mir-221 microRNA precursor family: an 82-nucleotide sequence from Takifugu flavidus. For this family Rfam cites "MicroRNA profile of Marek's disease virus-transformed T-cell line MSB-1: predominance of virus-encoded microRNAs" (Yao et al., J Virol, 2008). The base pairs follow the family's consensus structure, which was predicted with RNAalifold. The source organism's lineage runs through Eukaryota, Deuterostomia, Teleostomi, Actinopterygii and Takifugu.
RNA sequence: UCAGUUCUGGACCUGGCAUAUAGUGUAGGAUUCUGUGUGUCAGUCUACAGCUACAUUGUCUGCUGGGUUUCAGGCCUCUGCA
Numbered sequence: 001u002c003a004g005u006u007c008u009g010g011a012c013c014u015g016g017c018a019u020a021u022a023g024u025g026u027a028g029g030a031u032u033c034u035g036u037g038u039g040u041c042a043g044u045c046u047a048c049a050g051c052u053a054c055a056u057u058g059u060c061u062g063c064u065g066g067g068u069u070u071c072a073g074g075c076c077u078c079u080g081c082a
Stems, first nucleotide, its partner, number of pairs: 013066006020059009033050004